The record is a 125-nucleotide sequence from Vibrio cholerae, which matches "Vibrio RNA AS5" in Rfam. Pairs were carried over by alignment from the consensus structure, which was predicted with RNAfold. The family's RNA type in Rfam is antisense RNA. Identified by direct cloning an parallel sequencing experiments with 5S/tRNA depletion. Confirmed by Northern blot.
RNA sequence: UUAUACCAAAACUACUUGGAGUUGCAGGUAGGCGGCAAGAGAGUGAAUCCCCAUCAGCAUAGACAGACUAUGUGAUUGGGGUGAACGAACGUAGCCAAUACCGCUGCAGCUUCAAGUAGGUAUAG
Numbered sequence: 001u002u003a004u005a006c007c008a009a010a011a012c013u014a015c016u017u018g019g020a021g022u023u024g025c026a027g028g029u030a031g032g033c034g035g036c037a038a039g040a041g042a043g044u045g046a047a048u049c050c051c052c053a054u055c056a057g058c059a060u061a062g063a064c065a066g067a068c069u070a071u072g073u074g075a076u077u078g079g080g081g082u083g084a085a086c087g088a089a090c091g092u093a094g095c096c097a098a099u100a101c102c103g104c105u106g107c108a109g110c111u112u113c114a115a116g117u118a119g120g121u122a123u124a125g
Base pairs, nucleotide, nucleotide: 002124003123004122005121006120007119014117015116016115017114018113019112020111021110022109023108024107025106026105027102028101029100032092033091034090036083037082042077043076044075